[Rfam]
The family of this 76-nucleotide RNA from Ameiurus melas is "mir-7563 microRNA precursor family". Rfam 15.1 lists 362 matches to the family in 2 species. A search with the family's covariance model found it, with a score of 80 bits. The base pairs follow the family's consensus structure, which was predicted with RNAalifold.

RNA sequence: ACCGUGUACUUACCUACUAUAUACUAGCUGUAAUGCAUGCGUUUCUCCUACUAUAUAGUAGGUAAGUACGCGGUUU
Numbered sequence: 001a002c003c004g005u006g007u008a009c010u011u012a013c014c015u016a017c018u019a020u021a022u023a024c025u026a027g028c029u030g031u032a033a034u035g036c037a038u039g040c041g042u043u044u045c046u047c048c049u050a051c052u053a054u055a056u057a058g059u060a061g062g063u064a065a066g067u068a069c070g071c072g073g074u075u076u
Stems, first nucleotide, its partner, number of pairs: 001074015017058007025050003030045001033042003